[Rfam]
Description:
This 133-nucleotide RNA sequence from Pavo cristatus belongs to the Rfam family "Small nucleolar RNA SNORA77". Gene Ontology terms of the family: RNA processing and nucleolus. The family has 19 seed sequences and 843 matches in Rfam 15.1. ACA63 (SNORA77) is a member of the H/ACA class of snoRNAs that guide the sites of modification of uridines to pseudouridines. This snoRNA was identified by computational screening and its expression in mouse experimentally verified by Northern blot and primer extension analysis. NCBI's taxonomy places the organism under Eukaryota, Tetrapoda, Aves, Galloanserae, Pavo. The match comes from Rfam's covariance-model search (56 bits). It is annotated as an H/ACA-box small nucleolar RNA. The base pairs follow the family's consensus structure, which was predicted with RNAalifold. On this family, see Schattner et al., RNA 2006: "A computational screen for mammalian pseudouridylation guide H/ACA RNAs".

RNA sequence: GCAGACGCACUCUGUACCGAACUGCAGUCUCCAGUUCAGGUGCUUUUUCUGUCUGCAAGAGCAAUCGCUCACAGGCGUGAUGAAUGCCUUCCUUCUGGUGGAAGGCUGUUACAGCUGCUGCUGGGACACUGAA
Numbered sequence: 001g002c003a004g005a006c007g008c009a010c011u012c013u014g015u016a017c018c019g020a021a022c023u024g025c026a027g028u029c030u031c032c033a034g035u036u037c038a039g040g041u042g043c044u045u046u047u048u049c050u051g052u053c054u055g056c057a058a059g060a061g062c063a064a065u066c067g068c069u070c071a072c073a074g075g076c077g078u079g080a081u082g083a084a085u086g087c088c089u090u091c092c093u094u095c096u097g098g099u100g101g102a103a104g105g106c107u108g109u110u111a112c113a114g115c116u117g118c119u120g121c122u123g124g125g126a127c128a129c130u131g132a133a
Base pairs, nucleotide, nucleotide: 001056002055003054004053005052006051014043015042016041017040018039019037020036022034023033024032069124070123071122072120073119074118077115078114081111082110086106087105088104089103